[Rfam]
RNA: Small nucleolar RNA SNORD79
Organism: Austrofundulus limnaeus
RNA sequence: UGCUGUUAAUGAUGAUUCUGUUUAAAAAACAAUGGGAAUCUCUCUGAAAAAGAGUGAAAGAUGACUUUAUUCUGAUGCAGUU
Numbered sequence: 001u002g003c004u005g006u007u008a009a010u011g012a013u014g015a016u017u018c019u020g021u022u023u024a025a026a027a028a029a030c031a032a033u034g035g036g037a038a039u040c041u042c043u044c045u046g047a048a049a050a051a052g053a054g055u056g057a058a059a060g061a062u063g064a065c066u067u068u069a070u071u072c073u074g075a076u077g078c079a080g081u082u
Base pairs, nucleotide, nucleotide: 002081003080004079005078006077